RNA: ybhL leader
RNA sequence: AAGGCUUGCUGGAGUUCCGCCAGCGGCGCCUGGGUUUGGGCCCGACACCCGACGGAACAUAC
Number, nucleotide and partner (000 for none) at each position: 001a000002a000003g000004g000005c000006u000007u000008g000009c000010u000011g000012g060013a000014g058015u057016u056017c055018c054019g053020c000021c000022a000023g000024c000025g049026g048027c000028g000029c000030c000031u044032g043033g042034g041035u039036u000037u000038g000039g035040g000041c034042c033043c032044g031045a000046c000047a000048c026049c025050c000051g000052a000053c019054g018055g017056a016057a015058c014059a000060u012061a000062c000